[Rfam]
RNA sequence: UGUGCGGGCCGGGCCCCUCUGACUGUCGCUUUGGCGACCGUGAUGUCGGACCGCUUCA
Numbered sequence: 001u002g003u004g005c006g007g008g009c010c011g012g013g014c015c016c017c018u019c020u021g022a023c024u025g026u027c028g029c030u031u032u033g034g035c036g037a038c039c040g041u042g043a044u045g046u047c048g049g050a051c052c053g054c055u056u057c058a
Base pairs, nucleotide, nucleotide: 006052007051009049010048011047012046022041023040025038026037027036028035029034
Description: A member of the RNA family "terC RNA" from Mesorhizobium australicum, 58 nucleotides long. The base pairs follow the family's consensus structure, which is taken from published work. Lineage of the source: Bacteria > Pseudomonadota > Hyphomicrobiales > Phyllobacteriaceae > Mesorhizobium australicum.